[Rfam]
RNA sequence: AGCCUGUAAUGGGCCAAUUGGGAAGUUGACUCAGGUUAACUUCACUUUCCGAUGCUAUAUAAGAAUCCUGGCUGGUGCCCGGUUCGAUUCGCGUGGUCAUUGACAUUCUCUUCGAGCAAUCGUUGAUAAGAUGUUGAUGUUAAGACGAGGUCUACCGCUUCAGAGGAGUAAUCCUGCAGAGCGAGCCUCACCAUGUGAAGGCGAUUCUGGAUAACACCUAGGGGUUAUGCGGGAAGUGAGUUAACACUAAGUUGAGUUGACGACUCUACUUCUU
Numbered sequence: 001a002g003c004c005u006g007u008a009a010u011g012g013g014c015c016a017a018u019u020g021g022g023a024a025g026u027u028g029a030c031u032c033a034g035g036u037u038a039a040c041u042u043c044a045c046u047u048u049c050c051g052a053u054g055c056u057a058u059a060u061a062a063g064a065a066u067c068c069u070g071g072c073u074g075g076u077g078c079c080c081g082g083u084u085c086g087a088u089u090c091g092c093g094u095g096g097u098c099a100u101u102g103a104c105a106u107u108c109u110c111u112u113c114g115a116g117c118a119a120u121c122g123u124u125g126a127u128a129a130g131a132u133g134u135u136g137a138u139g140u141u142a143a144g145a146c147g148a149g150g151u152c153u154a155c156c157g158c159u160u161c162a163g164a165g166g167a168g169u170a171a172u173c174c175u176g177c178a179g180a181g182c183g184a185g186c187c188u189c190a191c192c193a194u195g196u197g198a199a200g201g202c203g204a205u206u207c208u209g210g211a212u213a214a215c216a217c218c219u220a221g222g223g224g225u226u227a228u229g230c231g232g233g234a235a236g237u238g239a240g241u242u243a244a245c246a247c248u249a250a251g252u253u254g255a256g257u258u259g260a261c262g263a264c265u266c267u268a269c270u271u272c273u274u
Base pairs, nucleotide, nucleotide: 002014003013004012016271017270019268020267021266022265025261026260027259028258029257030256031255038248042239043238044237045236046235047234048233049232050231051230052069054067056065058063072222073221074218075217076216077215079210080209081208082207084204085203086202088199089198090197091196092195093194094193095192096191098139099138100137101136102135103134104133105132106129107128109126110125112122114121115120140144147189148188149187150186151185156183157182158181159180160179165174166173167172